[Rfam]
RNA sequence: CCUAGCUCUCACGAGCCAGGCUAGCGUAUGCCGUACCUUAGGUACU
Dot-bracket structure: (((.((((....)))).)))............(((((...))))).
Numbered sequence: 001c002c003u004a005g006c007u008c009u010c011a012c013g014a015g016c017c018a019g020g021c022u023a024g025c026g027u028a029u030g031c032c033g034u035a036c037c038u039u040a041g042g043u044a045c046u
Stems, first nucleotide, its partner, number of pairs: 001020003005016004033045005

The family of this 46-nucleotide sequence from Lentisphaera araneosa is "Acido-Lenti-1 RNA".
NCBI's taxonomy places the organism under Bacteria, Lentisphaerota, Lentisphaeria, Lentisphaeraceae, Lentisphaera araneosa.
The family's RNA type in Rfam is small RNA.
The sequence is in the family's curated seed alignment.
Pairs were carried over by alignment from the consensus structure, which is taken from published work.